[Rfam]
RNA sequence: UGAGGCGUCCGACUUGACACAACAUCCUGCCGCGGUGUUGUGUGACCUGCAGUGUCAGUCGGUCGACUCG
Numbered sequence: 001u002g003a004g005g006c007g008u009c010c011g012a013c014u015u016g017a018c019a020c021a022a023c024a025u026c027c028u029g030c031c032g033c034g035g036u037g038u039u040g041u042g043u044g045a046c047c048u049g050c051a052g053u054g055u056c057a058g059u060c061g062g063u064c065g066a067c068u069c070g
Stems, first nucleotide, its partner, number of pairs: 001070004006065002010061005021039006044056003
RNA: bZIP non canonical Hac1/Xbp1 intron